[Rfam]
RNA sequence: AGCUCUCUGUAUCCGUGCUGAGAUUUCGUCAGCGAUCAACCCGCUGGAGUUGAUGCGACUUCCCAAAUAAGUGAAGCG
Numbered sequence: 001a002g003c004u005c006u007c008u009g010u011a012u013c014c015g016u017g018c019u020g021a022g023a024u025u026u027c028g029u030c031a032g033c034g035a036u037c038a039a040c041c042c043g044c045u046g047g048a049g050u051u052g053a054u055g056c057g058a059c060u061u062c063c064c065a066a067a068u069a070a071g072u073g074a075a076g077c078g
Stems, first nucleotide, its partner, number of pairs: 002077003006073001008071001010069003017062001020061003024058002027055004